[Rfam]
RNA sequence: CACGUCAGCGCGAUUUGCUGACAUGGCAUAAAAUCACGCCCUCUAGUAAGCGAUUUACUGCCACGUCAGCAAAUCACGCUGACGUGG
Numbered sequence: 001c002a003c004g005u006c007a008g009c010g011c012g013a014u015u016u017g018c019u020g021a022c023a024u025g026g027c028a029u030a031a032a033a034u035c036a037c038g039c040c041c042u043c044u045a046g047u048a049a050g051c052g053a054u055u056u057a058c059u060g061c062c063a064c065g066u067c068a069g070c071a072a073a074u075c076a077c078g079c080u081g082a083c084g085u086g087g
Stems, first nucleotide, its partner, number of pairs: 001086010012075010024063005031056005037050001041046001